[Rfam]
RNA sequence: GGAAUGCAAGUAUGAUGAUUCAAUUAGAUGUGUGAAAGGAGAAAUCCUUUUUGAACUCAAUUUAUUUGAGGCAUUUGAUUUUGUCUGACUUGCUUACC
Numbered sequence: 001g002g003a004a005u006g007c008a009a010g011u012a013u014g015a016u017g018a019u020u021c022a023a024u025u026a027g028a029u030g031u032g033u034g035a036a037a038g039g040a041g042a043a044a045u046c047c048u049u050u051u052u053g054a055a056c057u058c059a060a061u062u063u064a065u066u067u068g069a070g071g072c073a074u075u076u077g078a079u080u081u082u083g084u085c086u087g088a089c090u091u092g093c094u095u096a097c098c
Stems, first nucleotide, its partner, number of pairs: 001098002004095001006093005
A member of the RNA family "Small nucleolar RNA Z266" from Cicer arietinum, 98 nucleotides long. The family's consensus secondary structure was predicted with PFOLD. Its family is annotated with RNA processing and nucleolus in the Gene Ontology. Lineage of the source: Eukaryota > Euphyllophyta > rosids > Cicereae > Cicer. On this family, see Chen et al., Nucleic Acids Res 2003: "The high diversity of snoRNAs in plants: identification and comparative study of 120 snoRNA genes from Oryza sativa".